[Rfam]
RNA sequence: GUGCAUCCAGUAGGAAUUGAACCUGUGAAUUCAAAAUUAUGAGUUGGGCGCUUUAACUAUUCAACCAUGGAUGC
Numbered sequence: 001g002u003g004c005a006u007c008c009a010g011u012a013g014g015a016a017u018u019g020a021a022c023c024u025g026u027g028a029a030u031u032c033a034a035a036a037u038u039a040u041g042a043g044u045u046g047g048g049c050g051c052u053u054u055a056a057c058u059a060u061u062c063a064a065c066c067a068u069g070g071a072u073g074c
Stems, first nucleotide, its partner, number of pairs: 003074006010026005039068003043065006050058001
Dot-bracket structure: ..((((((.(((((.......)))))............(((.((((((.(.......).)))))))))))))))

A member of the RNA family "Plastid-ycf2 5UTR RNA" from Capsicum baccatum, 74 nucleotides long. From the family's description: Plastid ycf2 is a non-coding RNA (ncRNA) recognised in plastids. Pairs were carried over by alignment from the consensus structure, which was predicted with LocARNA. A search with the family's covariance model found it, with a score of 85 bits.